[Rfam]
RNA sequence: UCCUGUCUAUGAUGAUCAUAAGUUGGGAAUCUCUCUGAAAAAUCUUGAAGCUUAGCUUAUCUGAGACAACA
Numbered sequence: 001u002c003c004u005g006u007c008u009a010u011g012a013u014g015a016u017c018a019u020a021a022g023u024u025g026g027g028a029a030u031c032u033c034u035c036u037g038a039a040a041a042a043u044c045u046u047g048a049a050g051c052u053u054a055g056c057u058u059a060u061c062u063g064a065g066a067c068a069a070c071a
Base pairs, nucleotide, nucleotide: 001071004068005067006066007065
The record is a 71-nucleotide RNA from Owenia fusiformis, which matches "Small nucleolar RNA SNORD79" in Rfam.
The family's consensus secondary structure was predicted with PFOLD.
snoRNA U79 or Z22 is found in intron 7 of the gas5 gene in humans and is also present in mice.
Clan: SNORD74 clan.
On this family, see Galardi et al., Mol Cell Biol 2002: "Purified box C/D snoRNPs are able to reproduce site-specific 2'-O-methylation of target RNA in vitro".